[Rfam]
RNA: RNase MRP
Organism: Didymella exigua
RNA sequence: UCCUCGCUCGAAGAAUCGCAACGAAGCACACGCACAGAGUGGCCCCGCCAUCUCGCUCGCUUUGGGAGAAAGUCCCCGGACAACGCUCUUCGAGCGCACUUUCAGCAACGAACCGCCAUAGAAGCGCGGCCUCGCACCGCCACAGCACCCUCGCUCUCCCAACGCUUGCACUCUCGGUCCGCGCUUUCUUGAUGCUGCGGGUGGAGGAGCCGGCACCCGGGCGAUGAUAUGAGUCCGCUGGCUACCUUGGCCGCCGCCGAUGGAUUGCAUCGGGCCAGGAGGAGGAGGGAGGUGUCGAGGCGCUGGGUGCGAGGGUCUUGUCGUCCAGUUUAUGGUUAUGCGAUUGCCCUUGCGCCCCUCGGUAACACGGGGGUGUCGCAGGAGUAACUCAAUGGGGCUUAUUCUUGACGCGAGG
Dot-bracket structure: .((((((((((..((((((..((((((.........(.(..(...)..).).......)))))).....[[[.[[[[............................................................................................................................................(((((..........)))))..(((..(((((..(.(((((........................................))))..).)..))))))))......................)))))).(.((((((......................)))))).).........]]]]]]]....)))).))))))
Numbered sequence: 001u002c003c004u005c006g007c008u009c010g011a012a013g014a015a016u017c018g019c020a021a022c023g024a025a026g027c028a029c030a031c032g033c034a035c036a037g038a039g040u041g042g043c044c045c046c047g048c049c050a051u052c053u054c055g056c057u058c059g060c061u062u063u064g065g066g067a068g069a070a071a072g073u074c075c076c077c078g079g080a081c082a083a084c085g086c087u088c089u090u091c092g093a094g095c096g097c098a099c100u101u102u103c104a105g106c107a108a109c110g111a112a113c114c115g116c117c118a119u120a121g122a123a124g125c126g127c128g129g130c131c132u133c134g135c136a137c138c139g140c141c142a143c144a145g146c147a148c149c150c151u152c153g154c155u156c157u158c159c160c161a162a163c164g165c166u167u168g169c170a171c172u173c174u175c176g177g178u179c180c181g182c183g184c185u186u187u188c189u190u191g192a193u194g195c196u197g198c199g200g201g202u203g204g205a206g207g208a209g210c211c212g213g214c215a216c217c218c219g220g221g222c223g224a225u226g227a228u229a230u231g232a233g234u235c236c237g238c239u240g241g242c243u244a245c246c247u248u249g250g251c252c253g254c255c256g257c258c259g260a261u262g263g264a265u266u267g268c269a270u271c272g273g274g275c276c277a278g279g280a281g282g283a284g285g286a287g288g289g290a291g292g293u294g295u296c297g298a299g300g301c302g303c304u305g306g307g308u309g310c311g312a313g314g315g316u317c318u319u320g321u322c323g324u325c326c327a328g329u330u331u332a333u334g335g336u337u338a339u340g341c342g343a344u345u346g347c348c349c350u351u352g353c354g355c356c357c358c359u360c361g362g363u364a365a366c367a368c369g370g371g372g373g374u375g376u377c378g379c380a381g382g383a384g385u386a387a388c389u390c391a392a393u394g395g396g397g398c399u400u401a402u403u404c405u406u407g408a409c410g411c412g413a414g415g
Stems, first nucleotide, its partner, number of pairs: 002415006008408004014345006022064006037051001039049001042046001070400003074397004218237005240317003245314005252307001254305001255302004347384001349382006